[Rfam]
RNA sequence: GUGGGCUAUGGAGACAUGUACCCCAUGACGGUAGGAGGCAAGAUUGUGGGGUCGUUGUGCGCCAUUGCGGGCGUCCUCACCAUCGCCCUGCCGGUGCCCGUCAUCGUGUCCAAC
Numbered sequence: 001g002u003g004g005g006c007u008a009u010g011g012a013g014a015c016a017u018g019u020a021c022c023c024c025a026u027g028a029c030g031g032u033a034g035g036a037g038g039c040a041a042g043a044u045u046g047u048g049g050g051g052u053c054g055u056u057g058u059g060c061g062c063c064a065u066u067g068c069g070g071g072c073g074u075c076c077u078c079a080c081c082a083u084c085g086c087c088c089u090g091c092c093g094g095u096g097c098c099c100g101u102c103a104u105c106g107u108g109u110c111c112a113a114c
Stems, first nucleotide, its partner, number of pairs: 001114002004111002007108005013102003018097004037077002040074001049063002
A member of the RNA family "Potassium channel RNA editing signal" from Erinaceus europaeus, 114 nucleotides long. A reference for the family is Bhalla et al. (2004), "Control of human potassium channel inactivation by editing of a small mRNA hairpin", Nat Struct Mol Biol. Lineage of the source: Eukaryota > Vertebrata > Euteleostomi > Erinaceidae > Erinaceus. Rfam classes the family as a cis-regulatory element.